Description: Rfam assigns this 72-nucleotide sequence from Eubacterium aggregans to the family "Fluoride riboswitch aptamer (crcB RNA motif)". The family's consensus secondary structure is taken from published work. The organism belongs to Eubacterium, within Bacteria.
[Rfam]
RNA sequence: CUUUUAAAUGGGAAUGAAGAUCUCCCACGACAUCUGUCGAAACCGCCAAGGGCUGAUGGCUUCUACGAUAAG
Numbered sequence: 001c002u003u004u005u006a007a008a009u010g011g012g013a014a015u016g017a018a019g020a021u022c023u024c025c026c027a028c029g030a031c032a033u034c035u036g037u038c039g040a041a042a043c044c045g046c047c048a049a050g051g052g053c054u055g056a057u058g059g060c061u062u063c064u065a066c067g068a069u070a071a072g
Stems, first nucleotide, its partner, number of pairs: 010026004016063004021058001045053003